tRNA: an 82-nucleotide RNA from Desulfobacter postgatei.
The family's consensus secondary structure is taken from published work.
Gene Ontology term of the family: triplet codon-amino acid adaptor activity.
It is annotated as a transfer RNA.
Rfam describes the family as follows. Transfer RNA (tRNA) molecules are approximately 80 nucleotides in length.
The literature on the family includes a 1993 paper in Trends Biochem Sci by Hou, "The tertiary structure of tRNA and the development of the genetic code".
RNA sequence: GCCGAAGUGGUGGAAUAGGUAGACACGCACGCUUGAGGGGCGUGUGGGGAGACCCGUGGGAGUUCAAAUCUCCCCUUCGGCA
Numbered sequence: 001g002c003c004g005a006a007g008u009g010g011u012g013g014a015a016u017a018g019g020u021a022g023a024c025a026c027g028c029a030c031g032c033u034u035g036a037g038g039g040g041c042g043u044g045u046g047g048g049g050a051g052a053c054c055c056g057u058g059g060g061a062g063u064u065c066a067a068a069u070c071u072c073c074c075c076u077u078c079g080g081c082a
Base pairs, nucleotide, nucleotide: 001081002080003079004078005077006076007075010026011025012024028044029043030042031041032040058074059073060072061071062070